[Rfam]
RNA sequence: UGGAAGUGAUGAAAUAGAGAUAAUUGGAUGUCUCUUUGAAUGGAGUGUGUGGGGGUGGGGGUAGGGAAUGUGUGUGUGUAUGCCUGCAUGUAUAGAAAAGGCUUUGAAUGGGGGCACUGAUAAUGCAGUGCUGAUUCCGGAGUGCAUCUGAGGCAUGUUGUUAAGUUCUGGGGUGCCACUUUACAACAUUGCCAAUGAUUAAAGCCCAAAAGAAGCCCACCAGGAUAAGCCUAGGCAUCCGAAAUCUCUGACAGGUUCAUUAAUGAAAGUGAUCCUGUGAUCUGAUCUGA
Numbered sequence: 001u002g003g004a005a006g007u008g009a010u011g012a013a014a015u016a017g018a019g020a021u022a023a024u025u026g027g028a029u030g031u032c033u034c035u036u037u038g039a040a041u042g043g044a045g046u047g048u049g050u051g052g053g054g055g056u057g058g059g060g061g062u063a064g065g066g067a068a069u070g071u072g073u074g075u076g077u078g079u080a081u082g083c084c085u086g087c088a089u090g091u092a093u094a095g096a097a098a099a100g101g102c103u104u105u106g107a108a109u110g111g112g113g114g115c116a117c118u119g120a121u122a123a124u125g126c127a128g129u130g131c132u133g134a135u136u137c138c139g140g141a142g143u144g145c146a147u148c149u150g151a152g153g154c155a156u157g158u159u160g161u162u163a164a165g166u167u168c169u170g171g172g173g174u175g176c177c178a179c180u181u182u183a184c185a186a187c188a189u190u191g192c193c194a195a196u197g198a199u200u201a202a203a204g205c206c207c208a209a210a211a212g213a214a215g216c217c218c219a220c221c222a223g224g225a226u227a228a229g230c231c232u233a234g235g236c237a238u239c240c241g242a243a244a245u246c247u248c249u250g251a252c253a254g255g256u257u258c259a260u261u262a263a264u265g266a267a268a269g270u271g272a273u274c275c276u277g278u279g280a281u282c283u284g285a286u287c288u289g290a
Stems, first nucleotide, its partner, number of pairs: 001289004156188006163181001165176002168173001
RNA: Small Cajal body-specific RNA 7